[Rfam]
RNA sequence: AGAUGAAUUACAAGGCAGUUCUCCAUUGGCAGAAAAUAUAUAUUAUGUGCACGUAAAAAUGCAAUAUCUGUAUAUUUCUGCCAAGAGAGAAUUGCCCUGCCAUUCAAUG
Numbered sequence: 001a002g003a004u005g006a007a008u009u010a011c012a013a014g015g016c017a018g019u020u021c022u023c024c025a026u027u028g029g030c031a032g033a034a035a036a037u038a039u040a041u042a043u044u045a046u047g048u049g050c051a052c053g054u055a056a057a058a059a060u061g062c063a064a065u066a067u068c069u070g071u072a073u074a075u076u077u078c079u080g081c082c083a084a085g086a087g088a089g090a091a092u093u094g095c096c097c098u099g100c101c102a103u104u105c106a107a108u109g
Base pairs, nucleotide, nucleotide: 005105006104007103008102011099012098014096015095016094017093018092019091021089022088023087027083028082029081030080031079032078033077034076035075

Notes: Shown here is a 109-nucleotide RNA sequence from Rhododendron simsii, a member of the family "mir-399 microRNA precursor family". A search with the family's covariance model found it, with a score of 65 bits. Gene Ontology terms of the family: miRNA-mediated post-transcriptional gene silencing and RISC complex. The family has 13 seed sequences and 2,396 matches in Rfam 15.1. Rfam describes the family as follows. mir-399 was identified in both Arabidopsis thaliana and Oryza sativa computationally and was later experimentally verified. mir-399 is thought to target mRNAs coding for a phosphatase transporter. The family's consensus secondary structure was predicted with PFOLD. The organism belongs to Rhododendron, within Eukaryota.